[Rfam]
Overview:
The family of this 77-nucleotide RNA sequence from Astyanax mexicanus is "mir-19 microRNA precursor family". Rfam 15.1 lists 2,337 matches to the family in 651 species. On this family, see Lagos-Quintana et al., Science 2001: "Identification of novel genes coding for small expressed RNAs". It scores 71 bits against the family's covariance model. The base pairs follow the family's consensus structure, which was predicted with RNAalifold. The family is grouped with related families in Rfam's "mir-19 clan". Its family is annotated with miRNA-mediated post-transcriptional gene silencing and RISC complex in the Gene Ontology.
RNA sequence: UGAUCUGGUCAGUUUUGCUGGGUUGCAUUCAGCGUUCCCCCGUUGCUGUGCAAAUCCAUGCAAAACUGACCAUAGCG
Number, nucleotide and partner (000 for none) at each position: 001u000002g000003a000004u074005c000006u072007g071008g070009u069010c068011a067012g066013u065014u064015u063016u062017g061018c060019u000020g057021g056022g000023u053024u052025g051026c050027a049028u048029u000030c000031a047032g046033c045034g000035u000036u000037c000038c000039c000040c000041c000042g000043u000044u000045g033046c032047u031048g028049u027050g026051c025052a024053a023054a000055u000056c021057c020058a000059u000060g018061c017062a016063a015064a014065a013066c012067u011068g010069a009070c008071c007072a006073u000074a004075g000076c000077g000